Rfam assigns this 64-nucleotide sequence from Caenorhabditis elegans to the family "mir-5592 microRNA precursor family". The organism belongs to Caenorhabditis, within Eukaryota.
RNA sequence: CGGCCCUUACCGUUUAAUACAUGUUCCCGGUCGAUGCACCAUGUAUUAAACGGUAAGGGCCGGC
Numbered sequence: 001c002g003g004c005c006c007u008u009a010c011c012g013u014u015u016a017a018u019a020c021a022u023g024u025u026c027c028c029g030g031u032c033g034a035u036g037c038a039c040c041a042u043g044u045a046u047u048a049a050a051c052g053g054u055a056a057g058g059g060c061c062g063g064c
Base pairs, nucleotide, nucleotide: 001062002061003060004059005058006057007056008055009054010053011052012051013050014049015048016047017046018045019044020043021042022041023040